[Rfam]
RNA sequence: UUCUUAUCCAGAGAGAUGGAGGGACUGGCCCGAUGAUAUCUCGGCAGCGGAACUGUAGGAAACUAGAGUUGCUGUGCCAAAUCCAGCAAGCAAAUGUGCUUGAGAGAUAAGAG
Numbered sequence: 001u002u003c004u005u006a007u008c009c010a011g012a013g014a015g016a017u018g019g020a021g022g023g024a025c026u027g028g029c030c031c032g033a034u035g036a037u038a039u040c041u042c043g044g045c046a047g048c049g050g051a052a053c054u055g056u057a058g059g060a061a062a063c064u065a066g067a068g069u070u071g072c073u074g075u076g077c078c079a080a081a082u083c084c085a086g087c088a089a090g091c092a093a094a095u096g097u098g099c100u101u102g103a104g105a106g107a108u109a110a111g112a113g
Base pairs, nucleotide, nucleotide: 001113002112003111004110005109006108007107008106013042014041015040016039017038021031022030023029025086026085027084028083043078044077045076046075048074049073051070052069053068054067082105087102088101089100090099091098092097

A member of the RNA family "SAM riboswitch aptamer (S box leader)" from Cytobacillus solani, 113 nucleotides long. The match comes from Rfam's covariance-model search (85 bits). The source organism's lineage runs through Bacteria, Bacillota, Bacilli, Bacillaceae and Cytobacillus. Gene Ontology term of the family: regulation of gene expression.